[Rfam]
RNA sequence: AAGCGUCCGCGCGACUGGCGAUCAGAUGGAGCACCAUCGGGAAGCGCGGGCCGCAGGAUAGCCGGCCGCCCCGGCUGGGUGG
Numbered sequence: 001a002a003g004c005g006u007c008c009g010c011g012c013g014a015c016u017g018g019c020g021a022u023c024a025g026a027u028g029g030a031g032c033a034c035c036a037u038c039g040g041g042a043a044g045c046g047c048g049g050g051c052c053g054c055a056g057g058a059u060a061g062c063c064g065g066c067c068g069c070c071c072c073g074g075c076u077g078g079g080u081g082g
Stems, first nucleotide, its partner, number of pairs: 005051008015041002017070004026037004059077005
This 82-nucleotide RNA sequence from Phenylobacterium glaciei belongs to the Rfam family "ZMP/ZTP riboswitch aptamer (pfl RNA motif)". The source organism's lineage runs through Bacteria, Pseudomonadota, Alphaproteobacteria, Caulobacteraceae and Phenylobacterium. The match comes from Rfam's covariance-model search (53 bits).